[Rfam]
RNA sequence: CUAAAAACAAAGCCGAAUCCUAGACAACUGGGUACGGAGGAACCGAUUCUGGGGUGAAUCUUCUUUUGAAAGUAGGGUUAUCCUUGCCCGAACCCGUCAGCUAACUCCGGAGGCAAAAAAGGAGAGGAAAG
Numbered sequence: 001c002u003a004a005a006a007a008c009a010a011a012g013c014c015g016a017a018u019c020c021u022a023g024a025c026a027a028c029u030g031g032g033u034a035c036g037g038a039g040g041a042a043c044c045g046a047u048u049c050u051g052g053g054g055u056g057a058a059u060c061u062u063c064u065u066u067u068g069a070a071a072g073u074a075g076g077g078u079u080a081u082c083c084u085u086g087c088c089c090g091a092a093c094c095c096g097u098c099a100g101c102u103a104a105c106u107c108c109g110g111a112g113g114c115a116a117a118a119a120a121g122g123a124g125a126g127g128a129a130a131g
Base pairs, nucleotide, nucleotide: 012114013113014112019032020031021030022029023028035109036108037107038106039105044051045050052095053094054093060072061071062070075089076088077087078086

Background:
The record is a 131-nucleotide RNA from Desulforamulus aquiferis, which matches "c-di-AMP riboswitch aptamer (ydaO/yuaA leader)" in Rfam.